[Rfam]
RNA sequence: AGAGGUCAAAAGUUUGAGGCCAUAGCAGAAGUGCUCAUGGUUCAGCCUGUCAGAUUCCAAUGAAUCUGUGAAUUCUGCU
Number, nucleotide and partner (000 for none) at each position: 001a000002g000003a000004g000005g000006u000007c000008a000009a000010a000011a000012g000013u000014u000015u000016g000017a000018g047019g046020c045021c000022a000023u000024a079025g078026c077027a076028g075029a074030a073031g043032u000033g041034c000035u000036c000037a000038u000039g000040g000041u033042u000043c031044a000045g020046c019047c018048u000049g000050u000051c068052a067053g066054a065055u064056u063057c062058c000059a000060a000061u000062g057063a056064a055065u054066c053067u052068g051069u000070g000071a000072a000073u030074u029075c028076u027077g026078c025079u024
Overview
Rfam assigns this 79-nucleotide RNA from Alligator mississippiensis to the family "Mammalian CPEB3 ribozyme". The match comes from Rfam's covariance-model search (53 bits).